[Rfam]
RNA sequence: AUCCUUGCGGAAGGGGCAAUAGCGCUAUCUGUGACGCUUAGCGGAGGUGCGCUGUUUGCUAGUUGAAAACUACUCCAAUUCCCGUCAAGUUUGAUCGUCAAGGGUUGGCCACCCAUAGC
Numbered sequence: 001a002u003c004c005u006u007g008c009g010g011a012a013g014g015g016g017c018a019a020u021a022g023c024g025c026u027a028u029c030u031g032u033g034a035c036g037c038u039u040a041g042c043g044g045a046g047g048u049g050c051g052c053u054g055u056u057u058g059c060u061a062g063u064u065g066a067a068a069a070c071u072a073c074u075c076c077a078a079u080u081c082c083c084g085u086c087a088a089g090u091u092u093g094a095u096c097g098u099c100a101a102g103g104g105u106u107g108g109c110c111a112c113c114c115a116u117a118g119c
Stems, first nucleotide, its partner, number of pairs: 021053005027048003035043003084109003087105001090102005
The family of this 119-nucleotide RNA from Symbiodinium sp. CCMP2592 is "U4 spliceosomal RNA". It scores 74 bits against the family's covariance model. The base pairs follow the family's consensus structure, which is taken from published work. Rfam's curators write: U4 small nuclear RNA (U4 snRNA) is a component of the major U2-dependent spliceosome.